Shown here is a 129-nucleotide RNA sequence from Dorcoceras hygrometricum, a member of the family "U11 spliceosomal RNA". Rfam classes the family as a spliceosomal small nuclear RNA.
RNA sequence: AAAAAGGGUCGGUUGGCUAUAUAUGCCAUGCUAGCCCUCAGAGGGUUAGUGCUGUAUGGCUAUCAAGACAUAUGGCCGACACAAUUUAUGGGAACUUUAAAGGGUUGGCUCUUUGGCCGACCCUUCAAU
Numbered sequence: 001a002a003a004a005a006g007g008g009u010c011g012g013u014u015g016g017c018u019a020u021a022u023a024u025g026c027c028a029u030g031c032u033a034g035c036c037c038u039c040a041g042a043g044g045g046u047u048a049g050u051g052c053u054g055u056a057u058g059g060c061u062a063u064c065a066a067g068a069c070a071u072a073u074g075g076c077c078g079a080c081a082c083a084a085u086u087u088a089u090g091g092g093a094a095c096u097u098u099a100a101a102g103g104g105u106u107g108g109c110u111c112u113u114u115g116g117c118c119g120a121c122c123c124u125u126c127a128a129u
Stems, first nucleotide, its partner, number of pairs: 008080005014028004029051010052075007098127001100125001102123005108118001110116002